[Rfam]
Vault RNA: a 142-nucleotide sequence from Clytia hemisphaerica. The base pairs follow the family's consensus structure, which is taken from published work. Rfam describes the family as follows. This family of RNAs are found as part of the enigmatic vault ribonucleoprotein complex. The complex consists of a major vault protein (MVP), two minor vault proteins (VPARP and TEP1), and several small untranslated RNA molecules. It has been suggested that the vault complex is involved in drug resistance. It scores 38 bits against the family's covariance model.

RNA sequence: ACUUCAGCUUAGCAUAGUGGAUACUUCGUAUUUAUAAUUGAAUAUGAUCACCUUCGGCGUUGGAAGAGAGCUUAGUUCUGGACUGGGUUCGAGCCGGCUAGGAGACUGCGGCCUAGUUCCACGUGCGCCGUCUGACCUUCUU
Numbered sequence: 001a002c003u004u005c006a007g008c009u010u011a012g013c014a015u016a017g018u019g020g021a022u023a024c025u026u027c028g029u030a031u032u033u034a035u036a037a038u039u040g041a042a043u044a045u046g047a048u049c050a051c052c053u054u055c056g057g058c059g060u061u062g063g064a065a066g067a068g069a070g071c072u073u074a075g076u077u078c079u080g081g082a083c084u085g086g087g088u089u090c091g092a093g094c095c096g097g098c099u100a101g102g103a104g105a106c107u108g109c110g111g112c113c114u115a116g117u118u119c120c121a122c123g124u125g126c127g128c129c130g131u132c133u134g135a136c137c138u139u140c141u142u
Stems, first nucleotide, its partner, number of pairs: 004135004012126004017122004025093004